[Rfam]
RNA sequence: UCGUUAAGUGAUGAUGUGGUAGACAGAGUGUCACGUCAUCAUGCCUAAUCACUGACAUGUCAGUGUCACAUCAUUGAGGGUGAUAUCAUUGAGGGUGAUGAUGUGACAAUGAGGUGUCCAUGACAAGGUUUGAUGACGGGACACUCCGUUUGUCAUGUCAUCACUUAACGGAA
Number, nucleotide and partner (000 for none) at each position: 001u171002c170003g169004u168005u167006a166007a165008g164009u163010g162011a161012u160013g159014a158015u157016g156017u155018g154019g153020u152021a151022g150023a149024c148025a000026g146027a145028g144029u143030g142031u141032c140033a000034c138035g137036u136037c135038a134039u133040c132041a131042u000043g129044c128045c127046u126047a000048a000049u123050c122051a121052c000053u000054g118055a117056c116057a115058u114059g000060u000061c000062a000063g000064u000065g000066u000067c000068a000069c000070a102071u101072c100073a099074u098075u097076g096077a000078g000079g000080g000081u000082g000083a000084u000085a000086u000087c000088a000089u000090u000091g000092a000093g000094g000095g000096u076097g075098a074099u073100g072101a071102u070103g000104u000105g000106a000107c000108a000109a000110u000111g000112a000113g000114g058115u057116g056117u055118c054119c000120a000121u051122g050123a049124c000125a000126a046127g045128g044129u043130u000131u041132g040133a039134u038135g037136a036137c035138g034139g000140g032141a031142c030143a029144c028145u027146c026147c000148g024149u023150u022151u021152g020153u019154c018155a017156u016157g015158u014159c013160a012161u011162c010163a009164c008165u007166u006167a005168a004169c003170g002171g001172a000173a000
Overview:
The record is a 173-nucleotide RNA sequence from Glycine soja, which matches "MIR4371 microRNA precursor family" in Rfam. Its Rfam clan is "MIR4387 microRNA precursor clan". Rfam links the family to the GO terms RISC complex and miRNA-mediated post-transcriptional gene silencing. NCBI's taxonomy places the organism under Eukaryota, Euphyllophyta, Pentapetalae, Papilionoideae, Glycine subgen. Soja. It scores 132 bits against the family's covariance model.